[Rfam]
Shown here is an 89-nucleotide sequence from Pan troglodytes, a member of the family "Vault RNA". Rfam classes the family as a non-coding RNA gene.

RNA sequence: GGGCUGGCUUUAGCUCAGCGGUUACUUCGAGUACAUUGUAACCACCUCUCUGGGUGGUUCGAGACCCGCGGGUGCUUUCCAGCUCUUUU
Number, nucleotide and partner (000 for none) at each position: 001g000002g084003g083004c082005u081006g080007g079008c000009u000010u000011u000012a000013g073014c072015u071016c070017a000018g069019c068020g067021g066022u000023u000024a000025c000026u063027u062028c061029g060030a059031g000032u000033a000034c000035a000036u000037u000038g000039u000040a000041a000042c000043c000044a000045c000046c000047u000048c000049u000050c000051u000052g000053g000054g000055u000056g000057g000058u000059u030060c029061g028062a027063g026064a000065c000066c021067c020068g019069c018070g016071g015072g014073u013074g000075c000076u000077u000078u000079c007080c006081a005082g004083c003084u002085c000086u000087u000088u000089u000
The sequence is in the family's curated seed alignment. Rfam describes the family as follows. This family of RNAs are found as part of the enigmatic vault ribonucleoprotein complex. The complex consists of a major vault protein (MVP), two minor vault proteins (VPARP and TEP1), and several small untranslated RNA molecules.